A member of the RNA family "Bacterial large subunit ribosomal RNA" from Methylobacter tundripaludum, 361 nucleotides of a longer RNA.
Taxonomically the source falls in Methylobacter tundripaludum (Bacteria, Gammaproteobacteria, Methylococcaceae, Methylobacter).
The family's consensus secondary structure is taken from published work.
[Rfam]
RNA sequence: UGAGAGAACUCGGCUGAAGGAACUAGGCAAAAUGGUACCGUAACUUCGGGAGAAGGUACACCCCGAGUAGGUGAAGGCACUUGCUGCUGGAGUUGAAAGGGGUUGCAAUAAAUUGGUGGCUGCGACUGUUUAGCAAAAACAUAGCACUCUGCAAACUCGAAAGAGGAAGUAUAGGGUGUGACGCCUGCCCGGUGCUGGAAGGUUAAUUGAUGGGGUUAUCUUCGGAGAAGCUCUUGAUCGAAGCCCCAGUAAACGGCGGCCGUAACUAUAACGGUCCUAAGGUAGCGAAAUUCCUUGUCGGGUAAGUUCCGACCUGCACGAAUGGCGUAACGAUGGCCACACUGUCUCCAGCCGAGACUCA
Numbered sequence: 001u002g003a004g005a006g007a008a009c010u011c012g013g014c015u016g017a018a019g020g021a022a023c024u025a026g027g028c029a030a031a032a033u034g035g036u037a038c039c040g041u042a043a044c045u046u047c048g049g050g051a052g053a054a055g056g057u058a059c060a061c062c063c064c065g066a067g068u069a070g071g072u073g074a075a076g077g078c079a080c081u082u083g084c085u086g087c088u089g090g091a092g093u094u095g096a097a098a099g100g101g102g103u104u105g106c107a108a109u110a111a112a113u114u115g116g117u118g119g120c121u122g123c124g125a126c127u128g129u130u131u132a133g134c135a136a137a138a139a140c141a142u143a144g145c146a147c148u149c150u151g152c153a154a155a156c157u158c159g160a161a162a163g164a165g166g167a168a169g170u171a172u173a174g175g176g177u178g179u180g181a182c183g184c185c186u187g188c189c190c191g192g193u194g195c196u197g198g199a200a201g202g203u204u205a206a207u208u209g210a211u212g213g214g215g216u217u218a219u220c221u222u223c224g225g226a227g228a229a230g231c232u233c234u235u236g237a238u239c240g241a242a243g244c245c246c247c248a249g250u251a252a253a254c255g256g257c258g259g260c261c262g263u264a265a266c267u268a269u270a271a272c273g274g275u276c277c278u279a280a281g282g283u284a285g286c287g288a289a290a291u292u293c294c295u296u297g298u299c300g301g302g303u304a305a306g307u308u309c310c311g312a313c314c315u316g317c318a319c320g321a322a323u324g325g326c327g328u329a330a331c332g333a334u335g336g337c338c339a340c341a342c343u344g345u346c347u348c349c350a351g352c353c354g355a356g357a358c359u360c361a
Stems, first nucleotide, its partner, number of pairs: 001361004009356008018347003035059005044049001060103005068083006104108001116340007123332002127141003144179008152169001156165003182327004187257003192254002194250005201245003212234005219226002258276006277281001287314001297313006